[Rfam]
RNA sequence: AGGUCAUUGCAAAGAGGGCUGAUGGGACCAAAUCCAGGAACUCUUAAUGCUGUGAUCAAAGACUGAGUUUUCCAUAGGAUGUAACAGCCACUCAGUGGUGCUAUGUUUUCCUGAUGGAGAUACAAGA
Number, nucleotide and partner (000 for none) at each position: 001a000002g057003g056004u055005c054006a053007u052008u000009g000010c000011a000012a000013a000014g045015a044016g043017g042018g041019c000020u039021g000022a000023u037024g000025g000026g035027a000028c000029c000030a000031a000032a000033u000034c000035c026036a000037g023038g000039a020040a000041c018042u017043c016044u015045u014046a000047a000048u000049g000050c000051u000052g007053u006054g005055a004056u003057c002058a000059a000060a000061g000062a000063c000064u000065g000066a000067g000068u000069u120070u119071u118072c117073c116074a000075u000076a112077g111078g110079a109080u000081g000082u000083a000084a104085c000086a102087g101088c000089c100090a099091c098092u097093c000094a000095g000096u000097g092098g091099u090100g089101c087102u086103a000104u084105g000106u000107u000108u000109u079110c078111c077112u076113g000114a000115u000116g073117g072118a071119g070120a069121u000122a000123c000124a000125a000126g000127a000
The record is a 127-nucleotide RNA sequence from Delphinapterus leucas, which matches "Small nucleolar RNA SNORA25" in Rfam. Rfam classes the family as an H/ACA-box small nucleolar RNA. Gene Ontology terms of the family: nucleolus and RNA processing. ACA25 is a member of the H/ACA class of snoRNA that guide the sites of modification of uridines to pseudouridines. Taxonomically the source falls in Delphinapterus (Eukaryota, Metazoa, Chordata, Monodontidae). It scores 102 bits against the family's covariance model.